[Rfam]
RNA: Y RNA
Organism: Pan troglodytes
RNA sequence: GGCUGGUCUGAAGGUAGUGAGUUAUCUCAACUGAUUGUUCACCGUCAGUUACAGAUUGAAUUCCUCAUUCUACUCUUUUUCCCCUUCUCAUUACUGCACUUGUCUGGUCUAAU
Numbered sequence: 001g002g003c004u005g006g007u008c009u010g011a012a013g014g015u016a017g018u019g020a021g022u023u024a025u026c027u028c029a030a031c032u033g034a035u036u037g038u039u040c041a042c043c044g045u046c047a048g049u050u051a052c053a054g055a056u057u058g059a060a061u062u063c064c065u066c067a068u069u070c071u072a073c074u075c076u077u078u079u080u081c082c083c084c085u086u087c088u089c090a091u092u093a094c095u096g097c098a099c100u101u102g103u104c105u106g107g108u109c110u111a112a113u
Stems, first nucleotide, its partner, number of pairs: 001109006008102001010101002014097002016092006044074001047071002